[Rfam]
A member of the RNA family "SAM riboswitch aptamer (S box leader)" from Calditerricola satsumensis, 126 nucleotides long. Taxonomically the source falls in Calditerricola (Bacteria, Bacillati, Bacillota, Bacilli). The SAM riboswitch is found upstream of a number of genes which code for proteins involved in methionine or cysteine biosynthesis in Gram-positive bacteria. The SAM riboswitch acts at the level of transcription termination control.
RNA sequence: CUCUUAUCACGAGUGGCGGAGGGACUGGCCCGAUGAAGCCCGGCAACCGGCGGGAGCGGCGGAUGGUCGUUCUCGCAGCGGUGCCAAUUCCUGCAGAAUCCGGGCGCGGAUUCUGAGAGAUGAGAG
Dot-bracket structure: ((((((((....(.(((...(((.[.[[)))......))))((((.((.((((((((((.......))))))))))...))))))...(]].]((((((((......))))))))..)))))))))